[Rfam]
RNA sequence: AAAACUCAAAUUUGUAUGGAGUUGAACUUGUGCCUACGUUUGCCGCUAGGGGCGCUGUUUCAACUGCAUGCAUAUUUGAGUUA
Numbered sequence: 001a002a003a004a005c006u007c008a009a010a011u012u013u014g015u016a017u018g019g020a021g022u023u024g025a026a027c028u029u030g031u032g033c034c035u036a037c038g039u040u041u042g043c044c045g046c047u048a049g050g051g052g053c054g055c056u057g058u059u060u061c062a063a064c065u066g067c068a069u070g071c072a073u074a075u076u077u078g079a080g081u082u083a
Stems, first nucleotide, its partner, number of pairs: 008077004013072004018067001020065005025059003033051003038046002
mir-2807 microRNA precursor family: an 83-nucleotide RNA from Bombyx mori. Rfam 15.1 lists 5,120 matches to the family in 8 species. For this family Rfam cites "MicroRNAs of Bombyx mori identified by Solexa sequencing" (Liu et al., BMC Genomics, 2010). A search with the family's covariance model found it, with a score of 68 bits. Rfam links the family to the GO terms RISC complex and miRNA-mediated post-transcriptional gene silencing.